[Rfam]
RNA sequence: CACCUCUCAGAUUCUACUUUUGUAGCCCGUCACGGUCGCCGCAAGGCGAGGGAGUCAUGACAGACUUAUAUUUAAUAUAAACGUGGUAAAGCCGUACCUGAGCACGUCUGAUGUCAUGU
Numbered sequence: 001c002a003c004c005u006c007u008c009a010g011a012u013u014c015u016a017c018u019u020u021u022g023u024a025g026c027c028c029g030u031c032a033c034g035g036u037c038g039c040c041g042c043a044a045g046g047c048g049a050g051g052g053a054g055u056c057a058u059g060a061c062a063g064a065c066u067u068a069u070a071u072u073u074a075a076u077a078u079a080a081a082c083g084u085g086g087u088a089a090a091g092c093c094g095u096a097c098c099u100g101a102g103c104a105c106g107u108c109u110g111a112u113g114u115c116a117u118g119u
Stems, first nucleotide, its partner, number of pairs: 006102005029097002032095004036049005056118007066080004081107005
Overview: The family of this 119-nucleotide RNA sequence from Paenibacillus vortex is "EGFOA RNA". NCBI's taxonomy places the organism under Bacteria, Bacillati, Bacillota, Caryophanales, Paenibacillus vortex. The family's consensus secondary structure is taken from published work. Rfam classes the family as a small RNA.